Rfam assigns this 107-nucleotide RNA from Streptococcus sanguinis to the family "PreQ1-II (pre queuosine) riboswitch aptamer".
NCBI's taxonomy places the organism under Bacteria, Bacillati, Bacilli, Lactobacillales, Streptococcus sanguinis.
The sequence is in the family's curated seed alignment.
A reference for the family is Meyer et al. (2008), "Confirmation of a second natural preQ1 aptamer class in Streptococcaceae bacteria", RNA.
RNA sequence: UGGGGGAAUCAACUAAUGAUGCUCCUCUCAUGUGAUGCAACCCUUGGCGCUUAGCUUCUUUCGCCAAGCAUAUUACACGCGGUAAAGCCGCUAAAGGAGAAAACAUG
Number, nucleotide and partner (000 for none) at each position: 001u000002g000003g000004g000005g000006g000007a000008a000009u000010c000011a000012a000013c000014u000015a000016a000017u000018g041019a000020u039021g038022c037023u000024c000025c000026u000027c000028u000029c000030a000031u000032g000033u000034g000035a000036u000037g022038c021039a020040a000041c018042c000043c068044u067045u066046g065047g064048c063049g062050c000051u000052u000053a000054g000055c099056u098057u097058c096059u095060u094061u000062c049063g048064c047065c046066a045067a044068g043069c000070a000071u000072a000073u000074u000075a000076c000077a000078c000079g091080c090081g089082g088083u000084a000085a000086a000087g000088c082089c081090g080091c079092u000093a000094a060095a059096g058097g057098a056099g055100a000101a000102a000103a000104c000105a000106u000107g000